[Rfam]
RNA sequence: AAAAGCUUGACGGAGUGCGGUUUUUGACCGCCGAGAUUGCGUCUUUGGUUUGAUAUCGGACCUACAACGCAAAAUCCGUUGAACCUGAUGCAGUUCGUACUGCCGUAGGAAUCAAGUUUAUCCGAAAU
Number, nucleotide and partner (000 for none) at each position: 001a000002a000003a000004a000005g000006c116007u115008u114009g113010a112011c078012g077013g076014a075015g000016u072017g031018c030019g029020g028021u027022u000023u000024u000025u000026g000027a021028c020029c019030g018031c017032c000033g000034a000035g000036a000037u000038u071039g070040c069041g068042u067043c000044u000045u000046u000047g000048g000049u000050u000051u000052g000053a000054u000055a000056u000057c000058g000059g000060a000061c000062c000063u000064a000065c000066a000067a042068c041069g040070c039071a038072a016073a000074a000075u014076c013077c012078g011079u000080u000081g000082a000083a000084c109085c108086u107087g106088a000089u000090g103091c102092a101093g100094u000095u000096c000097g000098u000099a000100c093101u092102g091103c090104c000105g000106u087107a086108g085109g084110a000111a000112u010113c009114a008115a007116g006117u000118u000119u000120a000121u000122c000123c000124g000125a000126a000127a000128u000
Background:
TPP riboswitch aptamer (THI element): a 128-nucleotide RNA sequence from Bergeriella denitrificans. The base pairs follow the family's consensus structure, which is taken from published work. On this family, see Kulshina et al., RNA 2010: "Thermodynamic analysis of ligand binding and ligand binding-induced tertiary structure formation by the thiamine pyrophosphate riboswitch". Lineage of the source: Bacteria > Pseudomonadota > Betaproteobacteria > Neisseriales > Bergeriella.